Rfam assigns this 54-nucleotide RNA from Clupea harengus to the family "UnaL2 LINE 3' element". Its family is annotated with transposition, RNA-mediated in the Gene Ontology. The base pairs follow the family's consensus structure, which is taken from published work. The match comes from Rfam's covariance-model search (60 bits). About the family: The eel long interspersed element (LINE) UnaL2 and its partner short interspersed element (SINE) share a conserved 3' tail containing a stem-loop that is critical for their retrotransposition. Presumably, the first step of retrotransposition is the recognition of their 3' tails by UnaL2-encoded reverse transcriptase. The solution structure of a 17-nucleotide RNA derived from the 3' tail of UnaL2 was determined by NMR.
RNA sequence: UGUAUACAUCCUUGUAAGUCGCUUUGGAUAAAAGCGUCUACUAAAUGUAAAUGU
Numbered sequence: 001u002g003u004a005u006a007c008a009u010c011c012u013u014g015u016a017a018g019u020c021g022c023u024u025u026g027g028a029u030a031a032a033a034g035c036g037u038c039u040a041c042u043a044a045a046u047g048u049a050a051a052u053g054u
Stems, first nucleotide, its partner, number of pairs: 013043001014041003020036006